Annotation
Shown here is a 77-nucleotide sequence from Sinocyclocheilus anshuiensis, a member of the family "mir-9/mir-79 microRNA precursor family". For this family Rfam cites "Identification of novel genes coding for small expressed RNAs" (Lagos-Quintana et al., Science, 2001). The family has 214 seed sequences and 5,647 matches in Rfam 15.1.
RNA sequence: UUAUUUCUGCUUUCGGUUAUCUAGCUUUAUGAAAAGUGUUAAAACUCAUACAGCUAGAUAACCAAAGAGAGAAACCA
Numbered sequence: 001u002u003a004u005u006u007c008u009g010c011u012u013u014c015g016g017u018u019a020u021c022u023a024g025c026u027u028u029a030u031g032a033a034a035a036g037u038g039u040u041a042a043a044a045c046u047c048a049u050a051c052a053g054c055u056a057g058a059u060a061a062c063c064a065a066a067g068a069g070a071g072a073a074a075c076c077a
Stems, first nucleotide, its partner, number of pairs: 001077001004074002007071002011067003015063012028050005
Dot-bracket structure: (..((.((..(((.((((((((((((.(((((.............))))).)))))))))))).)))..)).))..)